Rfam assigns this 100-nucleotide RNA sequence from SAR116 cluster alpha proteobacterium HIMB100 to the family "Pyrrolysine insertion sequence mttB". For this family Rfam cites "Effects of using coding potential, sequence conservation and mRNA structure conservation for predicting pyrroly-sine containing genes" (Theil Have et al., BMC Bioinformatics, 2013). Rfam links the family to the GO term pyrrolysine incorporation. The base pairs follow the family's consensus structure, which was predicted with CMfinder. The family has 23 seed sequences and 416 matches in Rfam 15.1.
[Rfam]
RNA sequence: AUGGCAGAUGCCAAGAUGCCGGAUGCGCAAUCAGGCUAUGAGAAAGGCUCCACCCUUGUUAUGGCCGGCCUGUCAGGGCUGAAUAUGGUGUAUGAGGCAG
Dot-bracket structure: ..(........)............(......)(.(........................).)..............(.((..............)).)..